[Rfam]
RNA sequence: GGAUUCUCUCUCAACUUGCUUUCGGAGCAACGAUCGAGUUCGCUGGUAACUUAAGUGCUCUGGGGAAAGUCCCCGAACCUCUGACGAAGAGCGGUCGCGCUGUAAUUGGUGCUGUCCUACUCUCUGCUUGCCGUGCGUUGAAGGCUUACCUGAGCUGGCAAGCAUUACUAAGGGGUAGGAAAUAGUUCAAUGCCAUACAGUCAUGCAAGUGUGACACCGAUAGGUGUCGCUGUACAGAAUGGGGCUCAUUGAGGGUGGAUC
Numbered sequence: 001g002g003a004u005u006c007u008c009u010c011u012c013a014a015c016u017u018g019c020u021u022u023c024g025g026a027g028c029a030a031c032g033a034u035c036g037a038g039u040u041c042g043c044u045g046g047u048a049a050c051u052u053a054a055g056u057g058c059u060c061u062g063g064g065g066a067a068a069g070u071c072c073c074c075g076a077a078c079c080u081c082u083g084a085c086g087a088a089g090a091g092c093g094g095u096c097g098c099g100c101u102g103u104a105a106u107u108g109g110u111g112c113u114g115u116c117c118u119a120c121u122c123u124c125u126g127c128u129u130g131c132c133g134u135g136c137g138u139u140g141a142a143g144g145c146u147u148a149c150c151u152g153a154g155c156u157g158g159c160a161a162g163c164a165u166u167a168c169u170a171a172g173g174g175g176u177a178g179g180a181a182a183u184a185g186u187u188c189a190a191u192g193c194c195a196u197a198c199a200g201u202c203a204u205g206c207a208a209g210u211g212u213g214a215c216a217c218c219g220a221u222a223g224g225u226g227u228c229g230c231u232g233u234a235c236a237g238a239a240u241g242g243g244g245c246u247c248a249u250u251g252a253g254g255g256u257g258g259a260u261c
Stems, first nucleotide, its partner, number of pairs: 002261005008255004014210006022063007037051004068246002071244004083096002085093002097112006115180002120178002123175003133165004143150002212229006
Dot-bracket structure: .(((((.((((..((((((..(((((((........((((.......)))).....)))))))....[[.[[[[........((((.....)).))((((((....))))))..((...((.(((.......((((......((....))...........)))).......))).))))........................)))))).((((((......))))))...........]]]]]].....)))).)))))
Rfam assigns this 261-nucleotide sequence from Araneus ventricosus to the family "RNase MRP". Rfam links the family to the GO terms ribonuclease MRP activity, ribonuclease MRP complex and rRNA processing. From the family's description: RNase MRP is an enzymatically active ribonucleoprotein with two distinct roles in eukaryotes. In mitochondria it plays a direct role in the initiation of mitochondrial DNA replication. In the nucleus it is involved in precursor rRNA processing, where it cleaves the internal transcribed spacer 1 between 18S and 5.8S rRNAs. The family's RNA type in Rfam is ribozyme. It scores 85 bits against the family's covariance model.